[Rfam]
Shown here is a 564-nucleotide part of an RNA from Mesoplasma syrphidae, a member of the family "Bacterial large subunit ribosomal RNA".

RNA sequence: AAUAGUAAGAGCAUAUGGUGAAUGCCUUGGAAAAUGGAGCCGAAGAAGGACGUGACUACCUGCGAAAAGCAUCGGGGAGCUGGAAGUGAGCUUAGAUCCGGUGAUGUCCGAAUGGGGAAACCUAGUACGAUUAAUCUCGUAUUGUCCACAACUGAAUACAUAGGUUGUGAGAUGGGAACCUUGGGAACUGAAACAUCUUAGUACCAAGAGGAAAAGAAAAUAAAUAAUGAUUCUGUUAGUAGCGGCGAGCGAACGCGGAACAGGCCAAACCAGUCUACGGACUGGGGUUGUAGGACCAUAGUUAGAGUUACAAAAUUAAUGUAUAGUAGAAGCGAUUGGGAAGUCGCAGCACAGAGGGUGAUACUCCCGUAUACGAAAUGCAUUGAUCUCGAAAUGGAUAUCCUGAGUACGGCGAAACACGUGAAAUUUUGUCGGAAUCCGCCGAGACCACUCGGCAAGCCUAAAUACUACCAUUUUACCGAUAGUGAACCAGUACCGUGAGGGAAAGGUGAAAAGUACCCCGAGAGGGGAGUGAAAUAGUUCCUGAAACCAUAUGCUUACAAG
Dot-bracket structure: ........((((((((((.....(((..(((((((((((((......((((((........))).....(((((((..(((.......))).....)))))))...)))....(((....)))(((((((......))))))).(((((((((.........))))))).)).))...((((((.....((....))......))))).).........((.....))..((((((.....((.....))....)))))..((((....((((((....))))))......(((.((((.............(.((((((((((.(((...(((((......)))))..(...).(((.......)))...)))...)))))))))).)....))))....))).....((((((((.........))))))))......(((((......)))))..))))..)..)).))))))).))...............((....))....)).........((((....)))).............).....)))))))))).....
Rfam links the family to the GO terms ribosome and structural constituent of ribosome.
The organism belongs to Mesoplasma, within Bacteria.